[Rfam]
RNA sequence: GAGUGCUGGGAGACGGGGCCGUGGCACUGUAUGAGAUUCAUGUAGGCUUUCUCACAGUGAACCGGUCUCUUUUUCCAGCCCUCA
Numbered sequence: 001g002a003g004u005g006c007u008g009g010g011a012g013a014c015g016g017g018g019c020c021g022u023g024g025c026a027c028u029g030u031a032u033g034a035g036a037u038u039c040a041u042g043u044a045g046g047c048u049u050u051c052u053c054a055c056a057g058u059g060a061a062c063c064g065g066u067c068u069c070u071u072u073u074u075c076c077a078g079c080c081c082u083c084a
Stems, first nucleotide, its partner, number of pairs: 006078005015069007025059006033053003
About this RNA: Shown here is an 84-nucleotide RNA from Danio rerio, a member of the family "mir-128 microRNA precursor family". Rfam links the family to the GO terms miRNA-mediated post-transcriptional gene silencing and RISC complex. Rfam 15.1 lists 1,337 matches to the family in 643 species. The source organism's lineage runs through Eukaryota, Deuterostomia, Osteoglossocephalai, Clupeocephala and Danio.